Shown here is a 123-nucleotide RNA from Acetoanaerobium sticklandii, a member of the family "Molybdenum/Tungsten riboswitch aptamer (Moco RNA motif)". The literature on the family includes a 2008 paper in Mol Microbiol by Regulski et al., "in molybdenum cofactor and tungsten cofactor metabolism". Pairs were carried over by alignment from the consensus structure, which is taken from published work. The match comes from Rfam's covariance-model search (63 bits).
RNA sequence: AUAAUCAAACUUAUCCGAGCUAACUAUUCUAAAGUAUUGAAAUAUAUGCCAUGAAGGUUGGCCAAUGGGUAGAGUAGGAAACUACGCUGCCUCCCGCUAUUUGGAAAGGAUGGGGUUAACACU
Numbered sequence: 001a002u003a004a005u006c007a008a009a010c011u012u013a014u015c016c017g018a019g020c021u022a023a024c025u026a027u028u029c030u031a032a033a034g035u036a037u038u039g040a041a042a043u044a045u046a047u048g049c050c051a052u053g054a055a056g057g058u059u060g061g062c063c064a065a066u067g068g069g070u071a072g073a074g075u076a077g078g079a080a081a082c083u084a085c086g087c088u089g090c091c092u093c094c095c096g097c098u099a100u101u102u103g104g105a106a107a108g109g110a111u112g113g114g115g116u117u118a119a120c121a122c123u
Stems, first nucleotide, its partner, number of pairs: 011113006019062007027055003034049003067092006074085004093104002
Dot-bracket structure: ..........((((((..(((((((.(((....(((..........)))...))))))))))....((((((.((((....)))).))))))((........))...))))))..........